[Rfam]
RNA sequence: UCACGGUCGGGCUCGGAUUCGCUUGGUGCAGGUCGGGAACUGAUUGGCUGGUUACAUCCACGUGGAUUUUUCUUAUUGGUUUGUGAAAAACAGUGAUUGGAUCCCGCCUUGCAUCAACUGAAUCGGAGCCUCGAUGGUGCAA
Numbered sequence: 001u002c003a004c005g006g007u008c009g010g011g012c013u014c015g016g017a018u019u020c021g022c023u024u025g026g027u028g029c030a031g032g033u034c035g036g037g038a039a040c041u042g043a044u045u046g047g048c049u050g051g052u053u054a055c056a057u058c059c060a061c062g063u064g065g066a067u068u069u070u071u072c073u074u075a076u077u078g079g080u081u082u083g084u085g086a087a088a089a090a091c092a093g094u095g096a097u098u099g100g101a102u103c104c105c106g107c108c109u110u111g112c113a114u115c116a117a118c119u120g121a122a123u124c125g126g127a128g129c130c131u132c133g134a135u136g137g138u139g140c141a142a
Stems, first nucleotide, its partner, number of pairs: 013127002017123004023117010034106005040100007
The family of this 142-nucleotide RNA sequence from Arabis alpina is "MIR168 microRNA precursor family".
NCBI's taxonomy places the organism under Eukaryota, Streptophyta, Embryophyta, Brassicaceae, Arabis.
A reference for the family is Jagadeeswaran et al. (2009), "Cloning and characterization of small RNAs from Medicago truncatula reveals four novel legume-specific microRNA families", New Phytol.